[Rfam]
tRNA: a 74-nucleotide sequence from Catenovulum agarivorans. The organism belongs to Catenovulum agarivorans, within Bacteria. By type it is a transfer RNA. The match comes from Rfam's covariance-model search (64 bits).
RNA sequence: GCGCGUGUAGCUCAGCUGGAUAGAGUACCUGGCUACGAACCAGAUGGUCGGAGGUUCGAAUCCUUCCACGCGCG
Numbered sequence: 001g002c003g004c005g006u007g008u009a010g011c012u013c014a015g016c017u018g019g020a021u022a023g024a025g026u027a028c029c030u031g032g033c034u035a036c037g038a039a040c041c042a043g044a045u046g047g048u049c050g051g052a053g054g055u056u057c058g059a060a061u062c063c064u065u066c067c068a069c070g071c072g073c074g
Stems, first nucleotide, its partner, number of pairs: 001073007010026004029043004050066005